The record is an 85-nucleotide sequence from Arabis nemorensis, which matches "Small nucleolar RNA Z159/U59" in Rfam. The family's consensus secondary structure was predicted with PFOLD. Rfam classes the family as a C/D-box small nucleolar RNA. The family has 10 seed sequences and 1,401 matches in Rfam 15.1. Rfam links the family to the GO terms RNA processing and nucleolus. On this family, see Chen et al., Nucleic Acids Res 2003: "The high diversity of snoRNAs in plants: identification and comparative study of 120 snoRNA genes from Oryza sativa".
RNA sequence: CCUCUUGAUGACGAUCAAAAUCAUAACUUUCGUUCUUCCGAGAUAAAUUCAUGCGGAAAAAUAUGGAGACCUGAACUGAAAGAAG
Dot-bracket structure: ..((((.........................................................................))))..